[Rfam]
RNA sequence: GUCGUGUCGAUGAUGUUUUAAACACAAAUGUCUGAAUAUAUGAUAAUUUAAUGAUUCUCACGCUGUUACUGAGACACGAC
Numbered sequence: 001g002u003c004g005u006g007u008c009g010a011u012g013a014u015g016u017u018u019u020a021a022a023c024a025c026a027a028a029u030g031u032c033u034g035a036a037u038a039u040a041u042g043a044u045a046a047u048u049u050a051a052u053g054a055u056u057c058u059c060a061c062g063c064u065g066u067u068a069c070u071g072a073g074a075c076a077c078g079a080c
Base pairs, nucleotide, nucleotide: 002079003078004077005076006075007074008073

The family of this 80-nucleotide RNA sequence from Muraenolepis orangiensis is "Small nucleolar RNA SNORD72". About the family: snoRNA HBII-240 belongs to the CD family of snoRNAs. It is the human orthologue of the mouse MBII-240 and is predicted to guide 2'O-ribose methylation of the large 28S rRNA at residue U4590. By type it is a C/D-box small nucleolar RNA. Rfam links the family to the GO terms nucleolus and RNA processing. Lineage of the source: Eukaryota > Bilateria > Teleostomi > Ctenosquamata > Muraenolepis. The match comes from Rfam's covariance-model search (58 bits). For this family Rfam cites "RNomics: an experimental approach that identifies 201 candidates for novel, small, non-messenger RNAs in mouse" (Huttenhofer et al., EMBO J, 2001).